[Rfam]
RNA sequence: AAUCAUUACAAGUUGACUGUGCCGGUAUGCAGCCUGCUGUGGAGCCUGACCGUGGGUUAUGCGUCAACCACAAACGGAUAGAUUCUUUGGAGUCGAAUAAAAACGCUUAAA
Numbered sequence: 001a002a003u004c005a006u007u008a009c010a011a012g013u014u015g016a017c018u019g020u021g022c023c024g025g026u027a028u029g030c031a032g033c034c035u036g037c038u039g040u041g042g043a044g045c046c047u048g049a050c051c052g053u054g055g056g057u058u059a060u061g062c063g064u065c066a067a068c069c070a071c072a073a074a075c076g077g078a079u080a081g082a083u084u085c086u087u088u089g090g091a092g093u094c095g096a097a098u099a100a101a102a103a104c105g106c107u108u109a110a111a
Base pairs, nucleotide, nucleotide: 008040009039011038012037013036015034017032018031019030020029022077023076024075061106062105063104081094082093083092084091
A member of the RNA family "drum RNA" from Hungatella hathewayi, 111 nucleotides long. The match comes from Rfam's covariance-model search (57 bits). From the family's description: Firmicutes, Bacteroidetes (1 example), Proteobacteria (2 examples), Spirochaetes (2 examples). Pairs were carried over by alignment from the consensus structure, which is taken from published work.